[Rfam]
RNA sequence: CCAGUUGGCCGGGCAGCCGCGCUUUACCAAUGUCGAAAGACGGUAAGGGGAGGAAAGUCCGGGCUCCACGGAAACACGGUGCCGGAUAACGUCCGGCGGGGGCGACCCUAGGGAAAGUGCCACAGAGAGGAAACCGCCUCGAUUGUCCGAUGCCCAGCAUCGGGCGCUGCGAGGUAAGGGUGAAAGGGUGGGGUAAGAGCCCACCGCGUCGCUGGCAACAGGGACGGCAUGGUAAACCCCACCGGGAGCAAGACCGAAUAGGGAUGACGCGGGUGACGCGAAAGCGCCGCCACAGCCUGUUUCCGGGCCAGUCAUCCGGGUGGGUUGCGAGAGGCAGCGUGCAAAUGCUGUCCCAGAUGAAUGGCUGCCACGUUCCGGGCAACCGGAGCCAUACAGAACCCGGCUUACAGGCCAACUGGCAAA
Number, nucleotide and partner (000 for none) at each position: 001c419002c418003a417004g416005u415006u414007g413008g412009c411010c410011g408012g369013g368014c367015a366016g365017c364018c363019g000020c050021g000022c048023u047024u046025u045026a044027c043028c042029a000030a000031u000032g000033u000034c000035g000036a000037a000038a000039g000040a000041c000042g028043g027044u026045a025046a024047g023048g022049g000050g020051a000052g000053g000054a000055a406056a405057g404058u000059c403060c402061g401062g400063g399064c248065u247066c246067c245068a000069c000070g000071g000072a000073a302074a301075c000076a000077c244078g243079g242080u241081g240082c096083c095084g094085g093086a092087u000088a000089a000090c000091g000092u086093c085094c084095g083096g082097c111098g109099g108100g107101g106102g000103c000104g000105a000106c101107c100108c099109u098110a000111g097112g239113g238114a000115a000116a000117g237118u236119g233120c232121c231122a000123c000124a000125g000126a000127g000128a000129g000130g000131a000132a000133a000134c179135c178136g175137c174138c173139u172140c171141g170142a000143u000144u000145g000146u000147c000148c000149g000150a000151u000152g000153c000154c000155c000156a000157g000158c000159a000160u000161c000162g000163g000164g000165c000166g000167c000168u000169g000170c141171g140172a139173g138174g137175u136176a000177a000178g135179g134180g000181u000182g000183a000184a000185a000186g000187g205188g204189u203190g202191g201192g200193g000194u000195a000196a000197g000198a000199g000200c192201c191202c190203a189204c188205c187206g228207c226208g225209u224210c223211g000212c221213u220214g219215g000216c000217a000218a000219c214220a213221g212222g000223g210224a209225c208226g207227g000228c206229a000230u000231g121232g120233u119234a000235a000236a118237c117238c113239c112240c081241a080242c079243c078244g077245g067246g066247a065248g064249c000250a000251a000252g326253a325254c324255c323256g000257a000258a000259u000260a000261g000262g317263g316264a315265u314266g313267a312268c000269g000270c000271g000272g000273g000274u000275g000276a000277c000278g000279c000280g000281a000282a000283a000284g000285c000286g000287c000288c000289g000290c000291c000292a000293c000294a000295g308296c307297c306298u305299g000300u000301u074302u073303c000304c000305g298306g297307g296308c295309c000310a000311g000312u267313c266314a265315u264316c263317c262318g000319g000320g000321u000322g000323g255324g254325u253326u252327g000328c000329g000330a000331g000332a000333g352334g351335c350336a349337g348338c347339g346340u345341g000342c000343a000344a000345a340346u339347g338348c337349u336350g335351u334352c333353c000354c000355a000356g000357a000358u000359g000360a000361a000362u000363g018364g017365c016366u015367g014368c013369c012370a000371c000372g000373u000374u000375c000376c000377g000378g000379g000380c000381a000382a000383c000384c000385g000386g000387a000388g000389c000390c000391a000392u000393a000394c000395a000396g000397a000398a000399c063400c062401c061402g060403g059404c057405u056406u055407a000408c011409a000410g010411g009412c008413c007414a006415a005416c004417u003418g002419g001420c000421a000422a000423a000
RNA: Bacterial RNase P class A